Background:
Shown here is a 50-nucleotide RNA, a member of the family "eL15-Euryarchaeota ribosomal protein leader". For this family Rfam cites "Discovery of 20 novel ribosomal leader candidates in bacteria and archaea" (Eckert and Weinberg, BMC Microbiol, 2020).
RNA sequence: CCUGUCUCUGACAGGUCGGGAUGUGACUUCACACGGAGUUGAACCACUUG
Numbered sequence: 001c002c003u004g005u006c007u008c009u010g011a012c013a014g015g016u017c018g019g020g021a022u023g024u025g026a027c028u029u030c031a032c033a034c035g036g037a038g039u040u041g042a043a044c045c046a047c048u049u050g
Stems, first nucleotide, its partner, number of pairs: 001015005018045002025040005